[Rfam]
RNA sequence: AACACCUUUUAAUGAAUGUCCAGAGAGGCAUGGAAAGGGUUGAAUGAUAAGGGCGAAGUAUGCCCUUGUUUCCUCACACCUUCCUGCUCUCAGGAGGGUGUUUUUUUAU
Numbered sequence: 001a002a003c004a005c006c007u008u009u010u011a012a013u014g015a016a017u018g019u020c021c022a023g024a025g026a027g028g029c030a031u032g033g034a035a036a037g038g039g040u041u042g043a044a045u046g047a048u049a050a051g052g053g054c055g056a057a058g059u060a061u062g063c064c065c066u067u068g069u070u071u072c073c074u075c076a077c078a079c080c081u082u083c084c085u086g087c088u089c090u091c092a093g094g095a096g097g098g099u100g101u102u103u104u105u106u107u108a109u
Stems, first nucleotide, its partner, number of pairs: 005038005016031005046070010076101011
Dot-bracket structure: ....(((((......(((((......)))))..))))).......((((((((((.....)))))))))).....(((((((((((....)))))))))))........
Source information
The family of this 109-nucleotide RNA from Planococcus halotolerans is "PyrR binding site". This family represents the PyrR binding site and terminator structure. This RNA structure is found upstream of a variety of genes involved in pyrimidine biosynthesis and transport. The alignment also includes a portion of the antiterminator structure. It is annotated as a cis-regulatory element. The family's consensus secondary structure is taken from published work. A search with the family's covariance model found it, with a score of 67 bits.